[Rfam]
RNA sequence: CAAACGCCACAACGGCUUCCUGACGUGGCGCCAUUUCUGGACCAAUGGAGCA
Numbered sequence: 001c002a003a004a005c006g007c008c009a010c011a012a013c014g015g016c017u018u019c020c021u022g023a024c025g026u027g028g029c030g031c032c033a034u035u036u037c038u039g040g041a042c043c044a045a046u047g048g049a050g051c052a
Stems, first nucleotide, its partner, number of pairs: 005030006013022002015051003019048002

Background: The record is a 52-nucleotide RNA from Tropicimonas sp. IMCC6043, which matches "SAM/SAH riboswitch aptamer" in Rfam. Taxonomically the source falls in Tropicimonas (Bacteria, Pseudomonadati, Pseudomonadota, Rhodobacterales). Pairs were carried over by alignment from the consensus structure, which is taken from published work.